Rfam assigns this 80-nucleotide RNA sequence from Streptococcus oralis to the family "Streptococcus sRNA SpF01". It is one of the family's seed sequences. The base pairs follow the family's consensus structure, which was predicted with mfold. NCBI's taxonomy places the organism under Bacteria, Bacillati, Bacilli, Streptococcus, Streptococcus oralis.
RNA sequence: AUUUUAUUGAAUAAGAUAGGCUAUAAAGCCUUGAAAUUAAGCACUUUAGGCCUCUAUCCUAGAGUGCUUUUUUUGAUUUU
Dot-bracket structure: .................(((..........(..(....(((((((..(((.......)))..)))))))..)..)..)))
Numbered sequence: 001a002u003u004u005u006a007u008u009g010a011a012u013a014a015g016a017u018a019g020g021c022u023a024u025a026a027a028g029c030c031u032u033g034a035a036a037u038u039a040a041g042c043a044c045u046u047u048a049g050g051c052c053u054c055u056a057u058c059c060u061a062g063a064g065u066g067c068u069u070u071u072u073u074u075g076a077u078u079u080u
Stems, first nucleotide, its partner, number of pairs: 018080003031075001034072001039069007048060003